The record is a 362-nucleotide RNA from Cohnella cholangitidis, which matches "transfer-messenger RNA" in Rfam. Taxonomically the source falls in Cohnella (Bacteria, Bacillati, Bacillota, Caryophanales). A reference for the family is Mao et al. (2010), "Variations on the tmRNA gene", RNA Biol.

RNA sequence: GGGGCCGUUUAUGGAUUCGACGGGGGUAGAACGAGCGUGGGUAGCGGGUAGUAGGGCUGCGUCUGCUUCACUAACGCGGAAAGCCUAUUAAACGGCAAACAACAACCAACUUUAGCAGCAGCCUAAGAAACUGACUGUUAAGCUUCUACCCUCCAUCGCCCAUGUGGCGGGAUAGGGGCCAACUCUAGUGGGAUACGCUGUCUAGUCUCCGCCUGGGGCUAGCGGAAGAAGACAAUCAGGCUGACCCGAAGGGAAUCCGGUGACGGGGAGUCUCUAGGGUGACAUCAAAACUGUCACUACACCCGUAGAAGCACAUGUGGCGUUGCCUUCGGACAGGGGUUCGACUCCCCUCGGCUCCACCA
Numbered sequence: 001g002g003g004g005c006c007g008u009u010u011a012u013g014g015a016u017u018c019g020a021c022g023g024g025g026g027u028a029g030a031a032c033g034a035g036c037g038u039g040g041g042u043a044g045c046g047g048g049u050a051g052u053a054g055g056g057c058u059g060c061g062u063c064u065g066c067u068u069c070a071c072u073a074a075c076g077c078g079g080a081a082a083g084c085c086u087a088u089u090a091a092a093c094g095g096c097a098a099a100c101a102a103c104a105a106c107c108a109a110c111u112u113u114a115g116c117a118g119c120a121g122c123c124u125a126a127g128a129a130a131c132u133g134a135c136u137g138u139u140a141a142g143c144u145u146c147u148a149c150c151c152u153c154c155a156u157c158g159c160c161c162a163u164g165u166g167g168c169g170g171g172a173u174a175g176g177g178g179c180c181a182a183c184u185c186u187a188g189u190g191g192g193a194u195a196c197g198c199u200g201u202c203u204a205g206u207c208u209c210c211g212c213c214u215g216g217g218g219c220u221a222g223c224g225g226a227a228g229a230a231g232a233c234a235a236u237c238a239g240g241c242u243g244a245c246c247c248g249a250a251g252g253g254a255a256u257c258c259g260g261u262g263a264c265g266g267g268g269a270g271u272c273u274c275u276a277g278g279g280u281g282a283c284a285u286c287a288a289a290a291c292u293g294u295c296a297c298u299a300c301a302c303c304c305g306u307a308g309a310a311g312c313a314c315a316u317g318u319g320g321c322g323u324u325g326c327c328u329u330c331g332g333a334c335a336g337g338g339g340u341u342c343g344a345c346u347c348c349c350c351u352c353g354g355c356u357c358c359a360c361c362a
Stems, first nucleotide, its partner, number of pairs: 001358007021331009035318005041312002045305005051069001053067002057079005111142008143178006149171003153167004159192005196224005202218002211241005244280004249275001251273003256269003260297004265291001335351005